[Rfam]
RNA sequence: ACCGCGCCUAGGCUGAUCCCCGAACGCGCCGCCACCCUGCGGCGCUGGCGCGGCACUUCUACAGGGG
Numbered sequence: 001a002c003c004g005c006g007c008c009u010a011g012g013c014u015g016a017u018c019c020c021c022g023a024a025c026g027c028g029c030c031g032c033c034a035c036c037c038u039g040c041g042g043c044g045c046u047g048g049c050g051c052g053g054c055a056c057u058u059c060u061a062c063a064g065g066g067g
Stems, first nucleotide, its partner, number of pairs: 002053007011021002027044005035067004
Dot-bracket structure: .(((((((..((.......)).....(((((...[[[[.)))))..)))))))..........]]]]